[Rfam]
RNA sequence: GAAAAGGGGGUUGACCUUUAUCAUUCGAAUUUUGGGAAACCUGGUUCGAAUAAUAAAACGAUGGUCGGUGUACCUUGGCAAUCAAUUUUGUUGGUUUGCAAUCAAGGUGCAUUUAGAAUCGCCAUCAAGAGAUUCUAAACUCAUAAUUUUUGCAACAAGUGGAGUACCAGCUGCUUCGAAUAUAGAAGAUUAAGCGCUCCACACGU
Numbered sequence: 001g002a003a004a005a006g007g008g009g010g011u012u013g014a015c016c017u018u019u020a021u022c023a024u025u026c027g028a029a030u031u032u033u034g035g036g037a038a039a040c041c042u043g044g045u046u047c048g049a050a051u052a053a054u055a056a057a058a059c060g061a062u063g064g065u066c067g068g069u070g071u072a073c074c075u076u077g078g079c080a081a082u083c084a085a086u087u088u089u090g091u092u093g094g095u096u097u098g099c100a101a102u103c104a105a106g107g108u109g110c111a112u113u114u115a116g117a118a119u120c121g122c123c124a125u126c127a128a129g130a131g132a133u134u135c136u137a138a139a140c141u142c143a144u145a146a147u148u149u150u151u152g153c154a155a156c157a158a159g160u161g162g163a164g165u166a167c168c169a170g171c172u173g174c175u176u177c178g179a180a181u182a183u184a185g186a187a188g189a190u191u192a193a194g195c196g197c198u199c200c201a202c203a204c205g206u
Base pairs, nucleotide, nucleotide: 008142009141010140011139012138013066014065015064016063067113068112069111070110071109072108073107074106075105076104077103078102114137115136116135117134118133119132120131162204164202165201169198170197171196173195174194175193176192